Notes: A member of the RNA family "FMN riboswitch aptamer (RFN element)" from [Clostridium] aminophilum, 118 nucleotides long. Lineage of the source: Bacteria > Bacillati > Clostridia > Lachnospirales > Lachnoclostridium. The base pairs follow the family's consensus structure, which is taken from published work. Rfam's curators write: The RFN element is a highly conserved domain that is found frequently in the 5'-untranslated regions of prokaryotic mRNAs that encode for flavin mononucleotide (FMN) biosynthesis and transport proteins.
RNA sequence: UAAGUUCUUCGGGGCAGGGUGAAAGUCCCUACCGGCGGUAAAGUCCGCGACCUGCGAAAGCAGUUGACCCGGUGUGAUUCCGGGACCGACAGUAUAGUCUGGAUGAGAGAAGAAACUG
Numbered sequence: 001u002a003a004g005u006u007c008u009u010c011g012g013g014g015c016a017g018g019g020u021g022a023a024a025g026u027c028c029c030u031a032c033c034g035g036c037g038g039u040a041a042a043g044u045c046c047g048c049g050a051c052c053u054g055c056g057a058a059a060g061c062a063g064u065u066g067a068c069c070c071g072g073u074g075u076g077a078u079u080c081c082g083g084g085a086c087c088g089a090c091a092g093u094a095u096a097g098u099c100u101g102g103a104u105g106a107g108a109g110a111a112g113a114a115a116c117u118g
Base pairs, nucleotide, nucleotide: 005114006113007112008111009110010109017029018028019027031098032097033088034087035048036047037046038045043086044085052063053062068084069083070082071081072080090101091100092099